RNA sequence: UUUCUGCUGUGAUGAAUUAUGAAUAAAAGUCACACGUCAGACUUCAGAGAUUUUAAAAAAAUCUGAGAAGAAAAUUCUUGUCUUGUGAGUAGAAG
Numbered sequence: 001u002u003u004c005u006g007c008u009g010u011g012a013u014g015a016a017u018u019a020u021g022a023a024u025a026a027a028a029g030u031c032a033c034a035c036g037u038c039a040g041a042c043u044u045c046a047g048a049g050a051u052u053u054u055a056a057a058a059a060a061a062u063c064u065g066a067g068a069a070g071a072a073a074a075u076u077c078u079u080g081u082c083u084u085g086u087g088a089g090u091a092g093a094a095g
Stems, first nucleotide, its partner, number of pairs: 001095007049063004

Small nucleolar RNA R64/Z200 family: a 95-nucleotide RNA sequence from Durio zibethinus.
Rfam 15.1 lists 748 matches to the family in 228 species.
The base pairs follow the family's consensus structure, which was predicted with PFOLD.
Lineage of the source: Eukaryota > Viridiplantae > Magnoliopsida > eudicotyledons > Durio.
The family's RNA type in Rfam is C/D-box small nucleolar RNA.